Small nucleolar RNA SNORD10: a 140-nucleotide sequence from Strongylocentrotus purpuratus. Taxonomically the source falls in Strongylocentrotus (Eukaryota, Opisthokonta, Deuterostomia, Echinidea). For this family Rfam cites "RNomics: an experimental approach that identifies 201 candidates for novel, small, non-messenger RNAs in mouse" (Huttenhofer et al., EMBO J, 2001). Gene Ontology terms of the family: RNA processing and nucleolus. By type it is a C/D-box small nucleolar RNA.
[Rfam]
RNA sequence: AUAAAAUGAUGAUAACCUCAUGCGCUUCAUUUGAAUGCAGCUGAUGUUUUCUGGCUUUUACCAGUUGUAGGUGUUUUGCUUACAGGUGGUAGGGUUAGAAAACUAGGCUGUAUACAUGAUACAUGAUUGCAUCUGAUUAU
Number, nucleotide and partner (000 for none) at each position: 001a140002u139003a138004a137005a000006a000007u000008g000009a000010u000011g000012a000013u000014a000015a000016c000017c000018u000019c000020a000021u000022g000023c000024g000025c000026u000027u000028c000029a000030u000031u000032u000033g000034a000035a000036u000037g000038c000039a000040g000041c000042u000043g000044a000045u000046g103047u102048u101049u100050u099051c098052u097053g096054g095055c000056u000057u000058u000059u000060a000061c000062c000063a000064g000065u000066u000067g000068u000069a000070g000071g000072u000073g000074u000075u000076u000077u000078g000079c000080u000081u000082a000083c000084a000085g000086g000087u000088g000089g000090u000091a000092g000093g000094g000095u054096u053097a052098g051099a050100a049101a048102a047103c046104u000105a000106g000107g000108c000109u000110g000111u000112a000113u000114a000115c000116a000117u000118g000119a000120u000121a000122c000123a000124u000125g000126a000127u000128u000129g000130c000131a000132u000133c000134u000135g000136a000137u004138u003139a002140u001